A member of the RNA family "Gut-1 RNA", 75 nucleotides long.
It is annotated as a small RNA.
It is one of the family's seed sequences.
RNA sequence: CUGUUUUAUUCGACUGACCGCGAGUGAUAUUGCCUUUCGGACAGUGAAAUGAUGCCUUGCUUCGUGAUAUUGCCU
Dot-bracket structure: .......(((((........)))))...((((.(.....).))))...((((.((...)).))))..........